The family of this 103-nucleotide RNA from Neobacillus piezotolerans is "SAM riboswitch aptamer (S box leader)". The SAM riboswitch is found upstream of a number of genes which code for proteins involved in methionine or cysteine biosynthesis in Gram-positive bacteria. It scores 93 bits against the family's covariance model. The family's consensus secondary structure is taken from published work.
RNA sequence: UUCUUAUCAAGAGAGGUGGAGGGAACGGCCCUUUGAAGCCUCGGCAACAGGCCAUCUUAGGUACUGUGCCAAUUCCUGCGGGCAUUUGCCCGAAAGAUAGGAA
Numbered sequence: 001u002u003c004u005u006a007u008c009a010a011g012a013g014a015g016g017u018g019g020a021g022g023g024a025a026c027g028g029c030c031c032u033u034u035g036a037a038g039c040c041u042c043g044g045c046a047a048c049a050g051g052c053c054a055u056c057u058u059a060g061g062u063a064c065u066g067u068g069c070c071a072a073u074u075c076c077u078g079c080g081g082g083c084a085u086u087u088g089c090c091c092g093a094a095a096g097a098u099a100g101g102a103a
Stems, first nucleotide, its partner, number of pairs: 001103008013042005021031003027076002043070004048066002050062001052060001074095001079092005